ASdes TB sRNA: a 68-nucleotide RNA sequence from Mycolicibacterium duvalii. Taxonomically the source falls in Mycobacterium (subgen. Mycolicibacterium) (Bacteria, Bacillati, Actinomycetes, Mycobacteriales). For this family Rfam cites "Identification of small RNAs in Mycobacterium tuberculosis" (Arnvig and Young, Mol Microbiol, 2009).
RNA sequence: UUGGCGGUGGGGUCGAUCUCGCGGGUGACCACCAGAUAGUUGCGCAGCGCGACGGCGUGCAGAUGCUC
Numbered sequence: 001u002u003g004g005c006g007g008u009g010g011g012g013u014c015g016a017u018c019u020c021g022c023g024g025g026u027g028a029c030c031a032c033c034a035g036a037u038a039g040u041u042g043c044g045c046a047g048c049g050c051g052a053c054g055g056c057g058u059g060c061a062g063a064u065g066c067u068c
Stems, first nucleotide, its partner, number of pairs: 005062001008059002011030003016026003035056001037054001040052005